RNA sequence: UACUUCCUGCGAUGUACGUGUCGGCUUUCGUUGUUUUGAACCAAUGUUUGUUUCUUGGGAGUCCUAGAUCGAAGUGCGGCUGGCAAGCCCUCUCGAAGGGAAGUCAAAAGCAUUUUUGCGGACACCCACCUGCUAGAGCAGGUUCAGAAACAUAAGAGCCAAACGGCAUAGGCGGGUUUUCC
Numbered sequence: 001u002a003c004u005u006c007c008u009g010c011g012a013u014g015u016a017c018g019u020g021u022c023g024g025c026u027u028u029c030g031u032u033g034u035u036u037u038g039a040a041c042c043a044a045u046g047u048u049u050g051u052u053u054c055u056u057g058g059g060a061g062u063c064c065u066a067g068a069u070c071g072a073a074g075u076g077c078g079g080c081u082g083g084c085a086a087g088c089c090c091u092c093u094c095g096a097a098g099g100g101a102a103g104u105c106a107a108a109a110g111c112a113u114u115u116u117u118g119c120g121g122a123c124a125c126c127c128a129c130c131u132g133c134u135a136g137a138g139c140a141g142g143u144u145c146a147g148a149a150a151c152a153u154a155a156g157a158g159c160c161a162a163a164c165g166g167c168a169u170a171g172g173c174g175g176g177u178u179u180u181c182c
Stems, first nucleotide, its partner, number of pairs: 002180001006176005012169004017165003033151004037146006057127003061123004068117001071116007083104002088100004
RNA: 6S / SsrS RNA